[Rfam]
RNA sequence: AUGUCUUAAACGCUGAGUCCUGACCUAGAAGUCAGGAGCGGGGGAACCAACGGUGAGCAUAGCGAGUAUCUAAUGCGAACCACGGGGUGAAUCCUUGAACCGUCUAGAGACGGCAAAAAGGUAGGGCGACUCUCAACGCCCGAAUCCGACAGCUAACCUCGUAAGCGUCUCGAGAGAGGCAAC
Numbered sequence: 001a002u003g004u005c006u007u008a009a010a011c012g013c014u015g016a017g018u019c020c021u022g023a024c025c026u027a028g029a030a031g032u033c034a035g036g037a038g039c040g041g042g043g044g045a046a047c048c049a050a051c052g053g054u055g056a057g058c059a060u061a062g063c064g065a066g067u068a069u070c071u072a073a074u075g076c077g078a079a080c081c082a083c084g085g086g087g088u089g090a091a092u093c094c095u096u097g098a099a100c101c102g103u104c105u106a107g108a109g110a111c112g113g114c115a116a117a118a119a120g121g122u123a124g125g126g127c128g129a130c131u132c133u134c135a136a137c138g139c140c141c142g143a144a145u146c147c148g149a150c151a152g153c154u155a156a157c158c159u160c161g162u163a164a165g166c167g168u169c170u171c172g173a174g175a176g177a178g179g180c181a182a183c
Stems, first nucleotide, its partner, number of pairs: 011167004018037007038162006048084001085147003093121004124141004
This 183-nucleotide RNA sequence from Paenibacillus selenitireducens belongs to the Rfam family "c-di-AMP riboswitch aptamer (ydaO/yuaA leader)". A search with the family's covariance model found it, with a score of 94 bits. The organism belongs to Paenibacillus, within Bacteria.